The family of this 128-nucleotide RNA sequence from Punica granatum is "U11 spliceosomal RNA". The family has 72 seed sequences and 2,595 matches in Rfam 15.1. The source organism's lineage runs through Eukaryota, Embryophyta, Euphyllophyta, Pentapetalae and Punica. It scores 73 bits against the family's covariance model. Clan: U1 clan. Rfam classes the family as a spliceosomal small nuclear RNA.
RNA sequence: UAAAAGGGUCGGUUGGCUAAAUAUGCCACGCCCGCCCUCUGAUGGUGGGUGCUGUAUGGCUAUCCAGACAUAUGGCCGACAUAAUUUGUGGGACCCUAUAGGGUUGGCCCGCCUUGGCCGACCCUUCC
Numbered sequence: 001u002a003a004a005a006g007g008g009u010c011g012g013u014u015g016g017c018u019a020a021a022u023a024u025g026c027c028a029c030g031c032c033c034g035c036c037c038u039c040u041g042a043u044g045g046u047g048g049g050u051g052c053u054g055u056a057u058g059g060c061u062a063u064c065c066a067g068a069c070a071u072a073u074g075g076c077c078g079a080c081a082u083a084a085u086u087u088g089u090g091g092g093a094c095c096c097u098a099u100a101g102g103g104u105u106g107g108c109c110c111g112c113c114u115u116g117g118c119c120g121a122c123c124c125u126u127c128c
Stems, first nucleotide, its partner, number of pairs: 008080005014028004029051008052075007098126001100125008109117003